[Rfam]
RNA sequence: CUGUUAAGUGAUGAUGUGACAAACGAAGUGCCAUGUCAUCACGCCUUAUUACUGACACGUCAUUACAUGUCAUCACCUUCAAUGAUGUGACAAUGAUGUGUCAGUGAUUAGGUGUGAUGAUAUAACACUCUAUCUGUUACGUCAUCACUUAAUGAAA
Numbered sequence: 001c002u003g004u005u006a007a008g009u010g011a012u013g014a015u016g017u018g019a020c021a022a023a024c025g026a027a028g029u030g031c032c033a034u035g036u037c038a039u040c041a042c043g044c045c046u047u048a049u050u051a052c053u054g055a056c057a058c059g060u061c062a063u064u065a066c067a068u069g070u071c072a073u074c075a076c077c078u079u080c081a082a083u084g085a086u087g088u089g090a091c092a093a094u095g096a097u098g099u100g101u102c103a104g105u106g107a108u109u110a111g112g113u114g115u116g117a118u119g120a121u122a123u124a125a126c127a128c129u130c131u132a133u134c135u136g137u138u139a140c141g142u143c144a145u146c147a148c149u150u151a152a153u154g155a156a157a
Stems, first nucleotide, its partner, number of pairs: 002154020023133001025131001027129004033123014048108005054102005069086005

A member of the RNA family "MIR4371 microRNA precursor family" from Glycine max, 157 nucleotides long. Lineage of the source: Eukaryota > Embryophyta > Magnoliopsida > Glycine > Glycine subgen. Soja. A search with the family's covariance model found it, with a score of 136 bits. Its Rfam clan is "MIR4387 microRNA precursor clan".